This 309-nucleotide RNA sequence from Ictidomys tridecemlineatus belongs to the Rfam family "Vascular endothelial growth factor (VEGF) IRES A". Taxonomically the source falls in Ictidomys (Eukaryota, Opisthokonta, Gnathostomata, Sciuromorpha). A reference for the family is Huez et al. (1998), "Two independent internal ribosome entry sites are involved in translation initiation of vascular endothelial growth factor mRNA", Mol Cell Biol. This family represents the vascular endothelial growth factor (VEGF) internal ribosome entry site (IRES) A. VEGF is an endothelial cell mitogen with many crucial functions such as embryogenic development and wound healing. The 5' UTR of VEGF mRNA contains two IRES elements which are able to promote efficient translation at the AUG start codon, this family represents IRES A. The family's RNA type in Rfam is internal ribosome entry site. The base pairs follow the family's consensus structure, which is taken from published work.

RNA sequence: GCUAGCUCCGGCCGAGAGAAGCCGCGGCCAAAGGAGGGGGAGGAGGAAGAAGAGAAGGAAGAGGAGAGGGGGCCGCGGUGGCCACUAGGCUCUCGGAAGACGGGCUCAUGGACGGGUGAGGCGGCGGUGUGCGCAGACAGUGUUACAGCCGCGCGCGCGUCCCAGGCCCUGGCGCGGGCCUUGGCUCCAGGAGGAAAAGGAGCCCGCCAAGGCGCAGAGGAGAGCGGGCCGCCCCGCAGCCCGAGCCGGAGAGGGAGCGUGAGCAGAGCCGGCCCCGGCCGGGCCUCCGAAACCAUGAACUUUCUGCUC
Numbered sequence: 001g002c003u004a005g006c007u008c009c010g011g012c013c014g015a016g017a018g019a020a021g022c023c024g025c026g027g028c029c030a031a032a033g034g035a036g037g038g039g040g041a042g043g044a045g046g047a048a049g050a051a052g053a054g055a056a057g058g059a060a061g062a063g064g065a066g067a068g069g070g071g072g073c074c075g076c077g078g079u080g081g082c083c084a085c086u087a088g089g090c091u092c093u094c095g096g097a098a099g100a101c102g103g104g105c106u107c108a109u110g111g112a113c114g115g116g117u118g119a120g121g122c123g124g125c126g127g128u129g130u131g132c133g134c135a136g137a138c139a140g141u142g143u144u145a146c147a148g149c150c151g152c153g154c155g156c157g158c159g160u161c162c163c164a165g166g167c168c169c170u171g172g173c174g175c176g177g178g179c180c181u182u183g184g185c186u187c188c189a190g191g192a193g194g195a196a197a198a199g200g201a202g203c204c205c206g207c208c209a210a211g212g213c214g215c216a217g218a219g220g221a222g223a224g225c226g227g228g229c230c231g232c233c234c235c236g237c238a239g240c241c242c243g244a245g246c247c248g249g250a251g252a253g254g255g256a257g258c259g260u261g262a263g264c265a266g267a268g269c270c271g272g273c274c275c276c277g278g279c280c281g282g283g284c285c286u287c288c289g290a291a292a293c294c295a296u297g298a299a300c301u302u303u304c305u306g307c308u309c
Stems, first nucleotide, its partner, number of pairs: 002036002006033002010029003013024002048308002051305002054302002057294002061287004069276006075269002079266001081264001083263001089260002092257003101243006109236003114163003118160001120158001121156003124152004128147002131143004165233003171230003175226002179220004184215001186212002190207001191205001193203001
Dot-bracket structure: .((..((..(((((........))..)))..)).))...........((.((.((.((..((((....((((((((..(.(.(.....((.(((......((((((..(((..(((.(.((((((((((.((((.....))))..)).)))).))).).)))).(((...(((.((..((((.(.((..((.(.........).).)...))..).))))....)).))))))))).))))))...........))).))..)).).)).)))))).......)))).....))......)).)).)).